The record is a 73-nucleotide RNA from Protea cynaroides, which matches "Small nucleolar RNA snoR97" in Rfam. It scores 48 bits against the family's covariance model. Rfam 15.1 lists 862 matches to the family in 223 species. On this family, see Marker et al., Curr Biol 2002: "Experimental RNomics: identification of 140 candidates for small non-messenger RNAs in the plant Arabidopsis thaliana". Taxonomically the source falls in Protea (Eukaryota, Viridiplantae, Streptophyta, Streptophytina).
[Rfam]
RNA sequence: AGAUGAUUUGUUGUCAUCAGCUUCAUCUCUUGCAUUUCUUAAGAGAUUGGAGUUAAACAUCAGCACUACAUUU
Dot-bracket structure: ........(((((.....((((((.((((.............))))..))))))......)))))........
Numbered sequence: 001a002g003a004u005g006a007u008u009u010g011u012u013g014u015c016a017u018c019a020g021c022u023u024c025a026u027c028u029c030u031u032g033c034a035u036u037u038c039u040u041a042a043g044a045g046a047u048u049g050g051a052g053u054u055a056a057a058c059a060u061c062a063g064c065a066c067u068a069c070a071u072u073u
Stems, first nucleotide, its partner, number of pairs: 009065005019054006026046004